[Rfam]
RNA sequence: GAUGAAGCGAGGAGGUGAAUAUGCAGAAGUCAUCAACACACCGGUUUUAUCAGCACUAUUUUUUAGCGACGCAGGGAGCGUCAUGGCUGGCCCGCCUGCUGGCAGGAGAGCGGCUGAAAAUGCUCGAAGAACUGAUGCAGUGGAACGUUACGGCUCCGACUUCUGAAUCUCAUUGAUUUGCCUUAAUCAUGUGUGACUGAGUAUUGGUGUAUAACAUCACCCGCCAGCAGAUAUUUUCUGCUGGCUUUUUUC
Numbered sequence: 001g002a003u004g005a006a007g008c009g010a011g012g013a014g015g016u017g018a019a020u021a022u023g024c025a026g027a028a029g030u031c032a033u034c035a036a037c038a039c040a041c042c043g044g045u046u047u048u049a050u051c052a053g054c055a056c057u058a059u060u061u062u063u064u065a066g067c068g069a070c071g072c073a074g075g076g077a078g079c080g081u082c083a084u085g086g087c088u089g090g091c092c093c094g095c096c097u098g099c100u101g102g103c104a105g106g107a108g109a110g111c112g113g114c115u116g117a118a119a120a121u122g123c124u125c126g127a128a129g130a131a132c133u134g135a136u137g138c139a140g141u142g143g144a145a146c147g148u149u150a151c152g153g154c155u156c157c158g159a160c161u162u163c164u165g166a167a168u169c170u171c172a173u174u175g176a177u178u179u180g181c182c183u184u185a186a187u188c189a190u191g192u193g194u195g196a197c198u199g200a201g202u203a204u205u206g207g208u209g210u211a212u213a214a215c216a217u218c219a220c221c222c223g224c225c226a227g228c229a230g231a232u233a234u235u236u237u238c239u240g241c242u243g244g245c246u247u248u249u250u251u252c
Stems, first nucleotide, its partner, number of pairs: 001188003007181005033144002036141001039137002042134007050127002053123003067089002070086001071084001074081001097116002102111002162176002223245008
The record is a 252-nucleotide RNA sequence from [Enterobacter] lignolyticus, which matches "SgrS RNA" in Rfam. The organism belongs to [Enterobacter] lignolyticus, within Bacteria. Rfam links the family to the GO terms translation repressor activity, regulation of mRNA stability and negative regulation of translational initiation in response to stress. Pairs were carried over by alignment from the consensus structure, which was predicted with RNAalifold. In sugar transport-related sRNA (SgrS) is induced under conditions of glucose phosphate stress in E.coli. This small RNA acts to negatively regulate the translation and stability of the ptsG mRNA, which encodes the major glucose transporter in E. coli. SgrS forms a specific ribonucleoprotein complex with RNAse E and the chaperone Hfq and acts by base pairing with the ptsG mRNA. The crucial base-pairs for action of SgrS are confined to the 6 nt region overlapping the Shine-Dalgarno sequence of the ptsG mRNA. The literature on the family includes a 2007 paper in J Bacteriol by Vanderpool and Gottesman, "The novel transcription factor SgrR coordinates the response to glucose-phosphate stress". It scores 135 bits against the family's covariance model.